Plastid-rpl16 group II-D1 intron: a 44-nucleotide RNA sequence from Camellia sinensis. The literature on the family includes a 2023 paper in Plant Commun by Richter et al., "Retrograde signaling in plants: A critical review focusing on the GUN pathway and beyond". A search with the family's covariance model found it, with a score of 48 bits.

Nucleotides: 044
Stems, first nucleotide, its partner, number of pairs: 004038001007035003011031004
Number, partner (000 for none) and nucleotide at each position: 001000a002000a003000u004038c005000a006000g007035g008034a009033g010000c011031c012030a013029a014028u015000a016000a017000a018000g019000a020000c021000u022000g023000a024000g025000g026000a027000g028014a029013u030012u031011g032000a033009c034008u035007c036000a037000a038004g039000a040000a041000c042000a043000a044000a